[Rfam]
RNA: MIR8024 microRNA precursor family
RNA sequence: UUGGAGGAUUUAAAGACUUCAACUUGCAGACUUAAACUUGUAGACUUAAAGAAUUUGAAGACUUUAACUUGCAGACUUGAAGAAUUUGAAGACAUCAACU
Numbered sequence: 001u002u003g004g005a006g007g008a009u010u011u012a013a014a015g016a017c018u019u020c021a022a023c024u025u026g027c028a029g030a031c032u033u034a035a036a037c038u039u040g041u042a043g044a045c046u047u048a049a050a051g052a053a054u055u056u057g058a059a060g061a062c063u064u065u066a067a068c069u070u071g072c073a074g075a076c077u078u079g080a081a082g083a084a085u086u087u088g089a090a091g092a093c094a095u096c097a098a099c100u
Base pairs, nucleotide, nucleotide: 001098002097003096004095006093009090010089011088012087013086014085017082018081019080020079021078025073026072027071028070046067047066048065049064050063051062